The family of this 228-nucleotide RNA from Miscanthus lutarioriparius is "MIR6217 microRNA precursor family". Gene Ontology terms of the family: miRNA-mediated post-transcriptional gene silencing and RISC complex.
RNA sequence: UGUUUAUAAAAUAAUUUAUUCUGUGGCCACUUUGAGUUACGAUAAUUACUAAGCUAAUUUAUAAGAUUACGAUAACUCCUUAUUAAGUGAUUUACUAUAACGUUAUGGUAAAUAUCAUCGUGUGUUAUAGUAACACAACUAUCGUAAAUAUGUAUUCACUUUAUGAUAAAUUAGUAUAUAAAAUUAUCGUAAGUGGAGGUGGCUACAGAAUAACUUAUUCUAUGGCCA
Numbered sequence: 001u002g003u004u005u006a007u008a009a010a011a012u013a014a015u016u017u018a019u020u021c022u023g024u025g026g027c028c029a030c031u032u033u034g035a036g037u038u039a040c041g042a043u044a045a046u047u048a049c050u051a052a053g054c055u056a057a058u059u060u061a062u063a064a065g066a067u068u069a070c071g072a073u074a075a076c077u078c079c080u081u082a083u084u085a086a087g088u089g090a091u092u093u094a095c096u097a098u099a100a101c102g103u104u105a106u107g108g109u110a111a112a113u114a115u116c117a118u119c120g121u122g123u124g125u126u127a128u129a130g131u132a133a134c135a136c137a138a139c140u141a142u143c144g145u146a147a148a149u150a151u152g153u154a155u156u157c158a159c160u161u162u163a164u165g166a167u168a169a170a171u172u173a174g175u176a177u178a179u180a181a182a183a184u185u186a187u188c189g190u191a192a193g194u195g196g197a198g199g200u201g202g203c204u205a206c207a208g209a210a211u212a213a214c215u216u217a218u219u220c221u222a223u224g225g226c227c228a
Stems, first nucleotide, its partner, number of pairs: 001228002004225005010219005016213018037192011050178002053175010066164002069161001071159001074155001080147004087142003091138002093132011108116001

The match comes from Rfam's covariance-model search (168 bits). NCBI's taxonomy places the organism under Eukaryota, Tracheophyta, Liliopsida, Andropogoneae, Miscanthus.